[Rfam]
The record is a 64-nucleotide RNA from Myotis myotis, which matches "Selenocysteine insertion sequence 1" in Rfam. From the family's description: The incorporation of selenocysteine into a protein sequence is directed by an in-frame UGA codon (usually a stop codon) within the coding region of the mRNA. Selenoprotein mRNAs contain a conserved secondary structure in the 3' UTR that is required for the distinction of UGA stop from UGA selenocysteine. The selenocysteine insertion sequence (SECIS) is around 60 nt in length and adopts a hairpin structure which is sufficiently well-defined and conserved to act as a computational screen for selenoprotein genes. By type it is a cis-regulatory element. For this family Rfam cites "A novel RNA structural motif in the selenocysteine insertion element of eukaryotic selenoprotein mRNAs" (Walczak et al., RNA, 1996). A search with the family's covariance model found it, with a score of 40 bits.

RNA sequence: CUUGCAUUAAUGAGAACAGGAACAUAAACUAUGACCUAGGGGUUCCUGUUGGAUAGUUAGCAAU
Numbered sequence: 001c002u003u004g005c006a007u008u009a010a011u012g013a014g015a016a017c018a019g020g021a022a023c024a025u026a027a028a029c030u031a032u033g034a035c036c037u038a039g040g041g042g043u044u045c046c047u048g049u050u051g052g053a054u055a056g057u058u059a060g061c062a063a064u
Stems, first nucleotide, its partner, number of pairs: 002063004015050009029039003